The family of this 102-nucleotide RNA from Prunus armeniaca is "Small nucleolar RNA Z103". On this family, see Chen et al., Nucleic Acids Res 2003: "The high diversity of snoRNAs in plants: identification and comparative study of 120 snoRNA genes from Oryza sativa".

[Rfam]
RNA sequence: AUGGAAGUGAUGAUUAUUUCCCCAAAUGAUCGAAGCUGAACAAACUGAGCGACUUAUAUCUCUGUAUUAACAGAGACACCAAGCCAGGUGUUUCUGAUCCGU
Numbered sequence: 001a002u003g004g005a006a007g008u009g010a011u012g013a014u015u016a017u018u019u020c021c022c023c024a025a026a027u028g029a030u031c032g033a034a035g036c037u038g039a040a041c042a043a044a045c046u047g048a049g050c051g052a053c054u055u056a057u058a059u060c061u062c063u064g065u066a067u068u069a070a071c072a073g074a075g076a077c078a079c080c081a082a083g084c085c086a087g088g089u090g091u092u093u094c095u096g097a098u099c100c101g102u
Base pairs, nucleotide, nucleotide: 001102002101003100004099005098

The family's RNA type in Rfam is C/D-box small nucleolar RNA. It scores 82 bits against the family's covariance model.